The family of this 97-nucleotide RNA sequence from Stutzerimonas stutzeri is "Glycine riboswitch aptamer". It scores 68 bits against the family's covariance model. The organism belongs to Stutzerimonas, within Bacteria. The base pairs follow the family's consensus structure.
[Rfam]
RNA sequence: GAAGUGGUAUCGGGAGAGACUGUAGCGGCAUCGCCGUCGCAGCGCCGAAGGAGCAACCGCCCCGGAAACUCUCAGGCAAAAGGACCGAUACCACAGC
Numbered sequence: 001g002a003a004g005u006g007g008u009a010u011c012g013g014g015a016g017a018g019a020c021u022g023u024a025g026c027g028g029c030a031u032c033g034c035c036g037u038c039g040c041a042g043c044g045c046c047g048a049a050g051g052a053g054c055a056a057c058c059g060c061c062c063c064g065g066a067a068a069c070u071c072u073c074a075g076g077c078a079a080a081a082g083g084a085c086c087g088a089u090a091c092c093a094c095a096g097c
Stems, first nucleotide, its partner, number of pairs: 006092008020042004044077003047073002051071003057065002